The family of this 164-nucleotide RNA sequence from Alteribacillus iranensis is "glmS glucosamine-6-phosphate activated ribozyme aptamer". Rfam classes the family as a riboswitch. NCBI's taxonomy places the organism under Bacteria, Bacillati, Bacilli, Caryophanales, Alteribacillus.
RNA sequence: UAAUUUUUAAAAGCGCCUGGACUGCCUAGAGUGAAACGGCAGUUGACGAGGAGGAGGUUUAUCGAAGGAGAUCGGCGGAUGCCUCCCGGUUGCACGUCACAACCGAAAAUACAGGCCAAAAGGCAAAGGCGACUUUGCUAACAAAAGUCUGUAUCAUGACGUCA
Numbered sequence: 001u002a003a004u005u006u007u008u009a010a011a012a013g014c015g016c017c018u019g020g021a022c023u024g025c026c027u028a029g030a031g032u033g034a035a036a037c038g039g040c041a042g043u044u045g046a047c048g049a050g051g052a053g054g055a056g057g058u059u060u061a062u063c064g065a066a067g068g069a070g071a072u073c074g075g076c077g078g079a080u081g082c083c084u085c086c087c088g089g090u091u092g093c094a095c096g097u098c099a100c101a102a103c104c105g106a107a108a109a110u111a112c113a114g115g116c117c118a119a120a121a122g123g124c125a126a127a128g129g130c131g132a133c134u135u136u137g138c139u140a141a142c143a144a145a146a147g148u149c150u151g152u153a154u155c156a157u158g159a160c161g162u163c164a
Stems, first nucleotide, its partner, number of pairs: 020044007053086005062075004087105006109154007122139007